Rfam assigns this 152-nucleotide sequence from Tateyamaria sp. ANG-S1 to the family "Ruegeria cis2 sRNA".
The family's RNA type in Rfam is small RNA.
The organism belongs to Tateyamaria, within Bacteria.
The base pairs follow the family's consensus structure, which was predicted with RNAfold.
Rfam links the family to the GO term regulation of gene expression.

RNA sequence: GUUGAGUAACGCGGGUUGUAGUUGAUGAAGGUGAAGCCGCGCGACUGGUCAAUAAUGUGAAACAGCGGGUUCCAGUCGAACAUGGCCAGCAUGAAACUGGGCAACGUAUUGGCGACGAACAUCUUGCCUGACGCGAUCAUGUUGGCGCGCUG
Numbered sequence: 001g002u003u004g005a006g007u008a009a010c011g012c013g014g015g016u017u018g019u020a021g022u023u024g025a026u027g028a029a030g031g032u033g034a035a036g037c038c039g040c041g042c043g044a045c046u047g048g049u050c051a052a053u054a055a056u057g058u059g060a061a062a063c064a065g066c067g068g069g070u071u072c073c074a075g076u077c078g079a080a081c082a083u084g085g086c087c088a089g090c091a092u093g094a095a096a097c098u099g100g101g102c103a104a105c106g107u108a109u110u111g112g113c114g115a116c117g118a119a120c121a122u123c124u125u126g127c128c129u130g131a132c133g134c135g136a137u138c139a140u141g142u143u144g145g146c147g148c149g150c151u152g
Base pairs, nucleotide, nucleotide: 002034003033004032007029012024013023014022036056039053041050063152064151065150066149067148069081070080071079072078085146086145087144088143089142090141091140092139093138097133100129101128102126103125104124106122107121109118110117111116